[Rfam]
This 92-nucleotide sequence from Lachnospiraceae bacterium KM106-2 belongs to the Rfam family "Glycine riboswitch aptamer". It scores 53 bits against the family's covariance model.
Nucleotides: 092
Stems, first nucleotide, its partner, number of pairs: 009084005020030003032072003035068002039066001041064001045059001
Number, partner (000 for none) and nucleotide at each position: 001000a002000u003000u004000a005000g006000c007000a008000u009084c010083u011082c012081u013080g014000g015000a016000g017000a018000g019000u020030c021029u022028c023000a024000u025000c026000a027000a028022g029021a030020g031000c032072g033071c034070c035068g036067a037000a038000g039066g040000u041064g042000u043000a044000c045059g046000g047000u048000a049000a050000g051000g052000a053000a054000a055000c056000u057000u058000a059045u060000u061000a062000a063000u064041c065000u066039c067036u068035c069000a070034g071033g072032c073000a074000a075000a076000a077000g078000g079000a080013c081012a082011g083010a084009g085000c086000a087000u088000a089000u090000a091000g092000u
Source information
The pairing is the family consensus, mapped onto this sequence.